[Rfam]
RNA sequence: AAAGUCCAAGCAGAGCAAGGUUUAACCAACCACUCUUAUCGCGUGUUGCGCCGAAACGGGAGACCGCCAGGUGAAGUGUACACAGAGAACCAUGCAGGCCAUAGGGAGACGCACCUCCUGAAGCAAAUCGAGCCUCGUAACCUGUAGUCUGGAAACAGACAAAGAACAGAUGACGACGUGUUUAACGUCACGGAAGUCCAAGCGAAGAAACCGUAAAUGGUGAGGUUUCGGAGGAUCUGUCGGGGUCCAAGAACG
Numbered sequence: 001a002a003a004g005u006c007c008a009a010g011c012a013g014a015g016c017a018a019g020g021u022u023u024a025a026c027c028a029a030c031c032a033c034u035c036u037u038a039u040c041g042c043g044u045g046u047u048g049c050g051c052c053g054a055a056a057c058g059g060g061a062g063a064c065c066g067c068c069a070g071g072u073g074a075a076g077u078g079u080a081c082a083c084a085g086a087g088a089a090c091c092a093u094g095c096a097g098g099c100c101a102u103a104g105g106g107a108g109a110c111g112c113a114c115c116u117c118c119u120g121a122a123g124c125a126a127a128u129c130g131a132g133c134c135u136c137g138u139a140a141c142c143u144g145u146a147g148u149c150u151g152g153a154a155a156c157a158g159a160c161a162a163a164g165a166a167c168a169g170a171u172g173a174c175g176a177c178g179u180g181u182u183u184a185a186c187g188u189c190a191c192g193g194a195a196g197u198c199c200a201a202g203c204g205a206a207g208a209a210a211c212c213g214u215a216a217a218u219g220g221u222g223a224g225g226u227u228u229c230g231g232a233g234g235a236u237c238u239g240u241c242g243g244g245g246u247c248c249a250a251g252a253a254c255g
Stems, first nucleotide, its partner, number of pairs: 012036004019031004023223001025221002039086002043083004047078002049073004057066003130247001132246006166240006172198003177192004203234001207229006
RNA: Group II catalytic intron D1-D4-6
Organism: Cohnella luojiensis